RNA sequence: CUUUUAUUGAACGUUGACCGUCACGUGUCGCGAUUUUAUUGAAGGUUGACGUUAAUUAGGUGCACGAAAUUAACAUUCAAUAAACGCGCGAUAUGUGGCGGUCAAUAUCC
Numbered sequence: 001c002u003u004u005u006a007u008u009g010a011a012c013g014u015u016g017a018c019c020g021u022c023a024c025g026u027g028u029c030g031c032g033a034u035u036u037u038a039u040u041g042a043a044g045g046u047u048g049a050c051g052u053u054a055a056u057u058a059g060g061u062g063c064a065c066g067a068a069a070u071u072a073a074c075a076u077u078c079a080a081u082a083a084a085c086g087c088g089c090g091a092u093a094u095g096u097g098g099c100g101g102u103c104a105a106u107a108u109c110c
Base pairs, nucleotide, nucleotide: 020099021098022097023096025094026093029090030089031088035084036083038081039080040079
This 110-nucleotide RNA sequence from Glycine max belongs to the Rfam family "MIR1520 microRNA precursor family".
The source organism's lineage runs through Eukaryota, Tracheophyta, Spermatophyta, Magnoliopsida and Glycine subgen. Soja.
The family is grouped with related families in Rfam's "MIR1520 microRNA precursor clan".
Gene Ontology terms of the family: miRNA-mediated post-transcriptional gene silencing and RISC complex.
Pairs were carried over by alignment from the consensus structure, which was predicted with RNAalifold.